[Rfam]
RNA sequence: AGGCUUAUGAUGAUAUAAUUUUAAUAUCUUAGCGGAUUUCUAUGAUAUUAAACUAUAUUUUAAUCUAUGAUCUUAUUGUUACACACAUUGAACCCU
Numbered sequence: 001a002g003g004c005u006u007a008u009g010a011u012g013a014u015a016u017a018a019u020u021u022u023a024a025u026a027u028c029u030u031a032g033c034g035g036a037u038u039u040c041u042a043u044g045a046u047a048u049u050a051a052a053c054u055a056u057a058u059u060u061u062a063a064u065c066u067a068u069g070a071u072c073u074u075a076u077u078g079u080u081a082c083a084c085a086c087a088u089u090g091a092a093c094c095c096u
Stems, first nucleotide, its partner, number of pairs: 001096003005092001
Small nucleolar RNA R11/Z151: a 96-nucleotide RNA sequence from Lactuca sativa. Rfam 15.1 lists 802 matches to the family in 218 species. For this family Rfam cites "Identification of 66 box C/D snoRNAs in Arabidopsis thaliana: extensive gene duplications generated multiple isoforms predicting new ribosomal RNA 2'-O-methylation sites" (Barneche et al., J Mol Biol, 2001). Its family is annotated with nucleolus and RNA processing in the Gene Ontology. The family's RNA type in Rfam is C/D-box small nucleolar RNA.